[Rfam]
RNA sequence: UCGAAGUUAUAUGUAUACAAAUGGAUAAGAUUUUUGUCUUAGUGUAUGACGAAGCUUGAAACAAAGUGCAAUACCCCAUGUCUUGCUUUAGCAAGACGGGGGUAUUGCACU
Numbered sequence: 001u002c003g004a005a006g007u008u009a010u011a012u013g014u015a016u017a018c019a020a021a022u023g024g025a026u027a028a029g030a031u032u033u034u035u036g037u038c039u040u041a042g043u044g045u046a047u048g049a050c051g052a053a054g055c056u057u058g059a060a061a062c063a064a065a066g067u068g069c070a071a072u073a074c075c076c077c078a079u080g081u082c083u084u085g086c087u088u089u090a091g092c093a094a095g096a097c098g099g100g101g102g103u104a105u106u107g108c109a110c111u
Stems, first nucleotide, its partner, number of pairs: 008025001010023003065111010076100002080097005

A member of the RNA family "Plastid-psbA-1 3UTR RNA" from Musa balbisiana, 111 nucleotides long. A search with the family's covariance model found it, with a score of 71 bits. The family's consensus secondary structure was predicted with LocARNA. From the family's description: Plastid psbA-1 is a non-coding RNA (ncRNA) present in plastids. Clan: Plastid-psbA 3UTR RNA clan.